[Rfam]
RNA sequence: CAACUACGAGACGAAGUGAAUGGGUCGGGACCAUGUCAUUGACUUGGUUAGAUCCGGGAAAGUCCCCGGGCCCAAUACUGCAGAGAUGUAGACUCGAAAACGAAUAUAUCUUCAGAUCGGUGGGGCCUGUUCUUUGCCUGAAAGGACUAGGACGUGGCUGAGACAGGUGUGGAGCUACAAUGGCCUCAUCGCUGAAGCACCUUGGCCGAAUAUUACACAGUUAUAUACUUGGUCCCUAAUCGGACUAACUGAACGGGGCUUACGAUCUCGUAGUU
Dot-bracket structure: .((((((((((..(((((..((((((.....((.(((...))).))....))))))...[[[.[[[[...........((((....)))).(.(((....))).)............((((((((((......(.((.........................((....))...)).)....))))))))))..................................))))).((((......)))).........]]]]]]]....))))))))))
Shown here is a 275-nucleotide sequence from Hibiscus syriacus, a member of the family "RNase MRP". Clan: RNaseP clan. The base pairs follow the family's consensus structure, which is taken from published work. The match comes from Rfam's covariance-model search (67 bits). The organism belongs to Hibiscus, within Eukaryota. RNase MRP is an enzymatically active ribonucleoprotein with two distinct roles in eukaryotes. In mitochondria it plays a direct role in the initiation of mitochondrial DNA replication.